[Rfam]
RNA sequence: UCGUGCUAAACGGGGUGGUAGCGGUGCCCUAUAACCUGCAAUCCGCUUAGCAGGGUUGAAGUCUACUUUAGCCUAUUUCUUUUAAGGUCUGGCCUAGAUAAGUGGUGUUGACGAUCGGGUCCUACGCAAUGAGGCCUUACGAACCCCGUCAGGUCCGGAAGGAAGCAGCGGUAAGCAAGUGUCCUCAUGUGCCGUAGGGUUACCUGGUUCGAGCUAACUGUUUAGGUAACGCUUGGGAGAAAUAGGUGAGAGUAGAUGCACGG
Numbered sequence: 001u002c003g004u005g006c007u008a009a010a011c012g013g014g015g016u017g018g019u020a021g022c023g024g025u026g027c028c029c030u031a032u033a034a035c036c037u038g039c040a041a042u043c044c045g046c047u048u049a050g051c052a053g054g055g056u057u058g059a060a061g062u063c064u065a066c067u068u069u070a071g072c073c074u075a076u077u078u079c080u081u082u083u084a085a086g087g088u089c090u091g092g093c094c095u096a097g098a099u100a101a102g103u104g105g106u107g108u109u110g111a112c113g114a115u116c117g118g119g120u121c122c123u124a125c126g127c128a129a130u131g132a133g134g135c136c137u138u139a140c141g142a143a144c145c146c147c148g149u150c151a152g153g154u155c156c157g158g159a160a161g162g163a164a165g166c167a168g169c170g171g172u173a174a175g176c177a178a179g180u181g182u183c184c185u186c187a188u189g190u191g192c193c194g195u196a197g198g199g200u201u202a203c204c205u206g207g208u209u210c211g212a213g214c215u216a217a218c219u220g221u222u223u224a225g226g227u228a229a230c231g232c233u234u235g236g237g238a239g240a241a242a243u244a245g246g247u248g249a250g251a252g253u254a255g256a257u258g259c260a261c262g263g
Base pairs, nucleotide, nucleotide: 001263002262003261004260005259006258009057010056011055012030013029014028015027016026017025019023035054036053037052038051039050062256063255064254065253066252067251068250071247072246073245074244075243077241078240079239080238081237082236083235084234085233086232090228091227094225095224096223097222098221099220102218103217104215105214106213113209114208115207116206117205118204119203120202121198122197123196124195125194126193127189128188130187131186132185133184134183136179137178138177140175146171147170148169149168154163155162156161